Small nucleolar RNA U3: a 222-nucleotide RNA sequence from Aplysia californica. Its family is annotated with RNA processing and nucleolus in the Gene Ontology. About the family: Small nucleolar RNAs (snoRNAs) are involved in the processing and modification of rRNA in the nucleolus. There are two main classes of snoRNAs: the box C/D class, and the box H/ACA class. Rfam's curators put it in the seed alignment. It is annotated as a C/D-box small nucleolar RNA. On this family, see Zwieb, Nucleic Acids Res 1997: "The uRNA database".
[Rfam]
RNA sequence: AAGAUCAUACUUUUAGGGAUCAUUUCUAAAGUAUGUCUUGCCGAGACGUCGAGUAAAAUCGAUCGGCACGUAAACCACGAUGACGAGAUUGCGUCAGUUCCUCUGAGCGUGAAGUUGAGGCUGGCAUGACUACUGCUCUCGUAGUCAGGCCGUGUCUCGUUGAGGAUCGUUCCUUUCCUCCCUCAGUGGGGACAAGGAGGGGGAACUGGCAAUCAGAGUGGU
Numbered sequence: 001a002a003g004a005u006c007a008u009a010c011u012u013u014u015a016g017g018g019a020u021c022a023u024u025u026c027u028a029a030a031g032u033a034u035g036u037c038u039u040g041c042c043g044a045g046a047c048g049u050c051g052a053g054u055a056a057a058a059u060c061g062a063u064c065g066g067c068a069c070g071u072a073a074a075c076c077a078c079g080a081u082g083a084c085g086a087g088a089u090u091g092c093g094u095c096a097g098u099u100c101c102u103c104u105g106a107g108c109g110u111g112a113a114g115u116u117g118a119g120g121c122u123g124g125c126a127u128g129a130c131u132a133c134u135g136c137u138c139u140c141g142u143a144g145u146c147a148g149g150c151c152g153u154g155u156c157u158c159g160u161u162g163a164g165g166a167u168c169g170u171u172c173c174u175u176u177c178c179u180c181c182c183u184c185a186g187u188g189g190g191g192a193c194a195a196g197g198a199g200g201g202g203g204a205a206c207u208g209g210c211a212a213u214c215a216g217a218g219u220g221g222u
Base pairs, nucleotide, nucleotide: 003039004038006035007034008033009032010031011030016027017026018025019024048063049062050061051060052059074222075221076220077219078218093210094209095208096207097206098205099204100203101202102201103200104199107170108169109168117158118157119156120155122152123151124150125149129145130144131143132142133141174195175194179192180191181190182189183188